[Rfam]
RNA sequence: UCUGCCCCUCCCGGCGGGGCCUGACAGGCCGGGACGCCCCGGCGCGGAGUGGCCGCGCGCUUACAAAUCAAAUCGAGGGCGGGAAAGGAAAA
Dot-bracket structure: ....[[[[.(((((.]]]].........))))).(((((..(((((.......)))))..................)))))...........

The family of this 92-nucleotide RNA sequence is "GP20-a RNA". The base pairs follow the family's consensus structure, which is taken from published work. It is one of the family's seed sequences.